[Rfam]
RNA sequence: UGUCCCCCUCAACGGCUUCCUGACGAGGCGGGCUUAACAAAACGGAGCA
Dot-bracket structure: ...((.((((..(([[[.[[))..))))..))...........]]]]].
The record is a 49-nucleotide RNA from Rhodobacteraceae bacterium HTCC2150, which matches "SAM/SAH riboswitch aptamer" in Rfam. Pairs were carried over by alignment from the consensus structure, which is taken from published work. Taxonomically the source falls in Paracoccaceae (Bacteria, Pseudomonadati, Alphaproteobacteria, Rhodobacterales). Rfam links the family to the GO terms S-adenosylmethionine metabolic process and regulation of gene expression. It is one of the family's seed sequences.